[Rfam]
RNA sequence: AAAACUGUUGUCAAUGAUGUUUCUGUUGAUCUGACUAUAGUAUGAGGACAAAAAUCAGUAAUUCGUCACUACCACUGAGACAACAGCCUU
Numbered sequence: 001a002a003a004a005c006u007g008u009u010g011u012c013a014a015u016g017a018u019g020u021u022u023c024u025g026u027u028g029a030u031c032u033g034a035c036u037a038u039a040g041u042a043u044g045a046g047g048a049c050a051a052a053a054a055u056c057a058g059u060a061a062u063u064c065g066u067c068a069c070u071a072c073c074a075c076u077g078a079g080a081c082a083a084c085a086g087c088c089u090u
Stems, first nucleotide, its partner, number of pairs: 001090002005086008

Rfam assigns this 90-nucleotide RNA sequence from Astyanax mexicanus to the family "Small nucleolar RNA SNORD70". Gene Ontology terms of the family: RNA processing and nucleolus. Rfam describes the family as follows. snoRNA HBII-234 belongs to the C/D family of snoRNAs. It is the human orthologue of the mouse MBII-234 and is predicted to guide 2'O-ribose methylation of the small 18S rRNA on position A512. It is hosted, together with HBII-95, by the core C/D box snoRNA protein encoding gene NOP5/NOP58. For this family Rfam cites "RNomics: an experimental approach that identifies 201 candidates for novel, small, non-messenger RNAs in mouse" (Huttenhofer et al., EMBO J, 2001). Taxonomically the source falls in Astyanax (Eukaryota, Opisthokonta, Craniata, Ostariophysi). The family's RNA type in Rfam is C/D-box small nucleolar RNA. Pairs were carried over by alignment from the consensus structure.